Overview:
Small nucleolar RNA U54: an 81-nucleotide sequence from Setaria italica. Pairs were carried over by alignment from the consensus structure, which was predicted with PFOLD. By type it is a C/D-box small nucleolar RNA. The family is grouped with related families in Rfam's "U54 clan". Taxonomically the source falls in Setaria (Eukaryota, Panicodae, Paniceae, Cenchrinae). On this family, see Chen et al., Nucleic Acids Res 2003: "The high diversity of snoRNAs in plants: identification and comparative study of 120 snoRNA genes from Oryza sativa". Rfam's curators write: U54 is a C/D box small nucleolar RNA, which acts as a methylation guide for 18S ribosomal RNA in plants. The family has 21 seed sequences and 614 matches in Rfam 15.1.

RNA sequence: ACCUCAGUGAUUUCUACCAGUCACUCUGGUUAUAUACGCUAUUCUGAUUGCUGCUGCUGAAAAACAGUAUUUAUGAGAGUU
Number, nucleotide and partner (000 for none) at each position: 001a081002c000003c079004u078005c077006a000007g000008u000009g000010a000011u000012u000013u000014c000015u000016a000017c000018c000019a000020g000021u000022c000023a000024c000025u000026c000027u000028g000029g000030u000031u000032a000033u000034a000035u000036a000037c000038g000039c000040u000041a000042u000043u000044c000045u000046g000047a000048u000049u000050g000051c000052u000053g000054c000055u000056g000057c000058u000059g000060a000061a000062a000063a000064a000065c000066a000067g000068u000069a000070u000071u000072u000073a000074u000075g000076a000077g005078a004079g003080u000081u001